[Rfam]
RNA sequence: GGGCAGCGUGCUUAGGGUUCCGUUCGCCACGGCGAAGCCUGGUCCGAGAAGCACAACCUGCCCGGCAAAUUCCGGGCGGGCACACGGCGGGCCAAAAUCCCGGGAGAU
Numbered sequence: 001g002g003g004c005a006g007c008g009u010g011c012u013u014a015g016g017g018u019u020c021c022g023u024u025c026g027c028c029a030c031g032g033c034g035a036a037g038c039c040u041g042g043u044c045c046g047a048g049a050a051g052c053a054c055a056a057c058c059u060g061c062c063c064g065g066c067a068a069a070u071u072c073c074g075g076g077c078g079g080g081c082a083c084a085c086g087g088c089g090g091g092c093c094a095a096a097a098u099c100c101c102g103g104g105a106g107a108u
Base pairs, nucleotide, nucleotide: 008054009053010052011051012050015045016044020042021041022039023036024035025034026033027032057080058079059078060077061076062075063074064073065072083103085106089101090100091099

A member of the RNA family "Guanidine-I riboswitch aptamer" from Salipiger mucosus, 108 nucleotides long.